[Rfam]
RNA sequence: GGUUGACAAGAGCACACCCGGCGCGAGCCGGGGCCGCAAAGCCACGGAUCCCGGCGGGCUCCCCGCCACCGGGAUGGCCGGACUCCCUCC
Numbered sequence: 001g002g003u004u005g006a007c008a009a010g011a012g013c014a015c016a017c018c019c020g021g022c023g024c025g026a027g028c029c030g031g032g033g034c035c036g037c038a039a040a041g042c043c044a045c046g047g048a049u050c051c052c053g054g055c056g057g058g059c060u061c062c063c064c065g066c067c068a069c070c071g072g073g074a075u076g077g078c079c080g081g082a083c084u085c086c087c088u089c090c
Base pairs, nucleotide, nucleotide: 012037013036017032018031019030020029021028022027040084041083043081045080046079047078048075049074050073051072052071053070054069